Group II catalytic intron D1-D4-1: an 85-nucleotide sequence from Thermoanaerobacteraceae bacterium SP2. Rfam 15.1 lists 2,508 matches to the family in 1,144 species. The base pairs follow the family's consensus structure. Rfam links the family to the GO term Group II intron splicing. For this family Rfam cites "The ins and outs of group II introns" (Bonen and Vogel, Trends Genet, 2001).
RNA sequence: CAACCCGGGCUGAGAGGCCCGGCUGAACCGUCAGAAGUCAGCAGAGGCCAUAGUAGCCGGCACAGACGUCAGGCCGACGAAGGGC
Number, nucleotide and partner (000 for none) at each position: 001c025002a024003a000004c000005c022006c021007g020008g019009g018010c017011u016012g000013a000014g000015a000016g011017g010018c009019c008020c007021g006022g005023c000024u002025g001026a000027a000028c000029c000030g000031u000032c000033a000034g000035a000036a000037g000038u045039c044040a000041g000042c000043a000044g039045a038046g000047g085048c084049c083050a000051u000052a000053g000054u000055a000056g078057c000058c076059g075060g074061c073062a000063c000064a000065g000066a000067c000068g000069u000070c000071a000072g000073g061074c060075c059076g058077a000078c056079g000080a000081a000082g000083g049084g048085c047